[Rfam]
RNA sequence: CCAGGAAAAUGACCUAUGAAUUGACAGACUGUCUUCUGCAUUUGCCUGUCACUUCCAUAGGCCAAUAUUCUGU
Dot-bracket structure: .(((((.(.((.((((.(((.((((((.(.(..........).).)))))).)))..)))).)).).))))).
Notes:
A member of the RNA family "mir-192/215 microRNA precursor family" from Hylia prasina, 73 nucleotides long. Rfam's curators write: This family represents the human microRNA (miRNA) precursors mir-192 and mir-215. Animal miRNAs are transcribed as ~70nt precursors and subsequently processed by the Dicer enzyme to give a ~22nt product. In this case the mature sequence comes from the 5' arm of the precursor. The extents of the hairpin precursors are not generally known and are estimated based on hairpin prediction. The base pairs follow the family's consensus structure, which was predicted with PFOLD. A search with the family's covariance model found it, with a score of 68 bits. On this family, see Lagos-Quintana et al., RNA 2003: "New microRNAs from mouse and human". Lineage of the source: Eukaryota > Eumetazoa > Craniata > Neognathae > Hylia.